[Rfam]
RNA sequence: CGACACGGCGAGAUCGGACGCAUGAAGACCCAAAGAACCGGGGGGAGAACCAACCGAACCCACCCCACCCGCCCGUGUCGCUCGGUCGGGUGAACCGUGCCAACUGGGCUGGAUUUCGGGAUGGUUGGCGGGCAUAUGCUCGCCCCGACAACCGCAGACAUGAGACGGCCCCCGGCGGGACGGCAAUCCCGGUCGAGGGCCUGACCAUCUUAGGAAGUGACUGCUUCCCG
Numbered sequence: 001c002g003a004c005a006c007g008g009c010g011a012g013a014u015c016g017g018a019c020g021c022a023u024g025a026a027g028a029c030c031c032a033a034a035g036a037a038c039c040g041g042g043g044g045g046a047g048a049a050c051c052a053a054c055c056g057a058a059c060c061c062a063c064c065c066c067a068c069c070c071g072c073c074c075g076u077g078u079c080g081c082u083c084g085g086u087c088g089g090g091u092g093a094a095c096c097g098u099g100c101c102a103a104c105u106g107g108g109c110u111g112g113a114u115u116u117c118g119g120g121a122u123g124g125u126u127g128g129c130g131g132g133c134a135u136a137u138g139c140u141c142g143c144c145c146c147g148a149c150a151a152c153c154g155c156a157g158a159c160a161u162g163a164g165a166c167g168g169c170c171c172c173c174g175g176c177g178g179g180a181c182g183g184c185a186a187u188c189c190c191g192g193u194c195g196a197g198g199g200c201c202u203g204a205c206c207a208u209c210u211u212a213g214g215a216a217g218u219g220a221c222u223g224c225u226u227c228c229c230g
Base pairs, nucleotide, nucleotide: 007209008208010206016073017072019071020070078093079092080091081090082089083088108144110142111141112140167201168200169199170198171197173195174194177190178189179188180187213228214227215226216225217224

Rfam assigns this 230-nucleotide sequence from Streptomyces vinaceus to the family "Streptomyces sRNA 4677". Rfam's curators write: Located in the intergenic region between anti-sigma factor SCO4677 gene and a putative regulatory protein gene SCO4676. scr4677 expression requires the SCO4677 activity and scr4677 sRNA itself seem to affect the levels of the SCO4676-associated transcripts. Pairs were carried over by alignment from the consensus structure. Lineage of the source: Bacteria > Bacillati > Actinomycetes > Streptomycetaceae > Streptomyces.